[Rfam]
RNA sequence: UUAAUAGUGAUAUUGAGGAUGAAGGAAAUGGUGUAGCGAUUUUUUUCGAGUGUAUGAAAAGAAACUUGAUAUAAGACUAAAUGGUCGAUGGGGUUGUCUCACGAAUAUAAGUCUAAAAGGUAAACCUAAAACUAAGACAUUGUGAAAGAAAUAGGAUUCAU
Numbered sequence: 001u002u003a004a005u006a007g008u009g010a011u012a013u014u015g016a017g018g019a020u021g022a023a024g025g026a027a028a029u030g031g032u033g034u035a036g037c038g039a040u041u042u043u044u045u046u047c048g049a050g051u052g053u054a055u056g057a058a059a060a061g062a063a064a065c066u067u068g069a070u071a072u073a074a075g076a077c078u079a080a081a082u083g084g085u086c087g088a089u090g091g092g093g094u095u096g097u098c099u100c101a102c103g104a105a106u107a108u109a110a111g112u113c114u115a116a117a118a119g120g121u122a123a124a125c126c127u128a129a130a131a132c133u134a135a136g137a138c139a140u141u142g143u144g145a146a147a148g149a150a151a152u153a154g155g156a157u158u159c160a161u
Stems, first nucleotide, its partner, number of pairs: 001016006028161004037154001043148006049141005065136004070131001079127001083126003087113003093106003

The record is a 161-nucleotide RNA from Thomasclavelia cocleata, which matches "Group II catalytic intron D1-D4-3" in Rfam.
The pairing is the family consensus, mapped onto this sequence.
From the family's description: Group II introns are found in rRNA, tRNA and mRNA of organelles in fungi, plants and protists, and also in mRNA in bacteria.
A search with the family's covariance model found it, with a score of 35 bits.
The family has 406 seed sequences and 4,274 matches in Rfam 15.1.